[Rfam]
RNA sequence: GCUCAUUCACAGGGGGGCUCCGUAUUGCCGGGGCUGAGAUUGAAGGUGGCAAACCUUCUGACCCUAUAGCUGAUCUGGGUAAUGCCAGCGGAGCGAGGUCAAACAUGUUUUCCG
Numbered sequence: 001g002c003u004c005a006u007u008c009a010c011a012g013g014g015g016g017g018c019u020c021c022g023u024a025u026u027g028c029c030g031g032g033g034c035u036g037a038g039a040u041u042g043a044a045g046g047u048g049g050c051a052a053a054c055c056u057u058c059u060g061a062c063c064c065u066a067u068a069g070c071u072g073a074u075c076u077g078g079g080u081a082a083u084g085c086c087a088g089c090g091g092a093g094c095g096a097g098g099u100c101a102a103a104c105a106u107g108u109u110u111u112c113c114g
Stems, first nucleotide, its partner, number of pairs: 006102002009099002011065004016059001017034005042058006069094003075088004

A member of the RNA family "TPP riboswitch aptamer (THI element)" from Martelella mediterranea, 114 nucleotides long. It scores 54 bits against the family's covariance model. Vitamin B(1) in its active form thiamin pyrophosphate (TPP) is an essential coenzyme that is synthesised by coupling of pyrimidine and thiazole moieties in bacteria. The source organism's lineage runs through Bacteria, Pseudomonadota, Alphaproteobacteria, Aurantimonadaceae and Martelella.